The record is a 91-nucleotide sequence from Callipepla squamata, which matches "Retrovirus direct repeat 1 (dr1)" in Rfam. The literature on the family includes a 1999 paper in J Virol by Aschoff et al., "Point mutations in the avian sarcoma/leukosis virus 3' untranslated region result in a packaging defect". NCBI's taxonomy places the organism under Eukaryota, Amniota, Theropoda, Galloanserae, Callipepla. It scores 45 bits against the family's covariance model. About the family: This family represents the direct repeat 1 (dr1) element commonly found in the 3' UTR of Avian sarcoma, Rous sarcoma and Avian leukosis viruses (Alpharetroviruses and Avian type C retroviruses). dr1 is required for efficient viral replication and is thought to be involved in genomic RNA packaging although this may not be its only role. The family has 26 seed sequences and 106 matches in Rfam 15.1.
RNA sequence: UGUAACGGGUAAAGGCUUGCAUCGAGAGGACAAUGGCAUGUUUAGGCGUAGACGGGGCUUUCGGGAUGUACGUGGUUAGGGUCCUUUCGGG
Number, nucleotide and partner (000 for none) at each position: 001u012002g000003u000004a000005a000006c000007g000008g000009g000010u000011a000012a001013a000014g000015g000016c000017u000018u000019g000020c000021a000022u000023c000024g088025a087026g086027a085028g084029g083030a082031c081032a000033a000034u000035g000036g000037c000038a000039u000040g000041u000042u000043u078044a077045g076046g000047c074048g073049u000050a000051g000052a069053c068054g067055g000056g000057g000058c000059u000060u000061u000062c000063g000064g000065g000066a000067u054068g053069u052070a000071c000072g000073u048074g047075g000076u045077u044078a043079g000080g000081g031082u030083c029084c028085u027086u026087u025088c024089g000090g000091g000
By type it is a cis-regulatory element.